[Rfam]
RNA sequence: UGGUAGAUGCACCCUGAUUAAUAUCCCCAGCUCUUAACAGGGCUGGGGGUUUCCUUA
Numbered sequence: 001u002g003g004u005a006g007a008u009g010c011a012c013c014c015u016g017a018u019u020a021a022u023a024u025c026c027c028c029a030g031c032u033c034u035u036a037a038c039a040g041g042g043c044u045g046g047g048g049g050u051u052u053c054c055u056u057a
Stems, first nucleotide, its partner, number of pairs: 002013003024049010

Nitrogen stress-induced RNA 1: a 57-nucleotide sequence from Allocoleopsis franciscana. It is annotated as a small RNA. The family has 17 seed sequences and 962 matches in Rfam 15.1. It scores 54 bits against the family's covariance model. A reference for the family is Ionescu et al. (2010), "Heterocyst-specific transcription of NsiR1, a non-coding RNA encoded in a tandem array of direct repeats in cyanobacteria", J Mol Biol.